A member of the RNA family "tRNA" from Lentibacillus cibarius, 90 nucleotides long.
RNA sequence: GGAGGAGUACCCAAGUACGGCUGAAGGGGGCGCACUCGAAAUGCGCUAGGGCGUGUAAGCGUCGCGGGGGUUCGAAUCCCUCCUCCUCCG
Numbered sequence: 001g002g003a004g005g006a007g008u009a010c011c012c013a014a015g016u017a018c019g020g021c022u023g024a025a026g027g028g029g030g031c032g033c034a035c036u037c038g039a040a041a042u043g044c045g046c047u048a049g050g051g052c053g054u055g056u057a058a059g060c061g062u063c064g065c066g067g068g069g070g071u072u073c074g075a076a077u078c079c080c081u082c083c084u085c086c087u088c089c090g
Stems, first nucleotide, its partner, number of pairs: 001089007010028003030046005066082005
Dot-bracket structure: (((((((..(((.............))).(((((.......)))))...................(((((.......)))))))))))).
Rfam classes the family as a transfer RNA. The base pairs follow the family's consensus structure, which is taken from published work.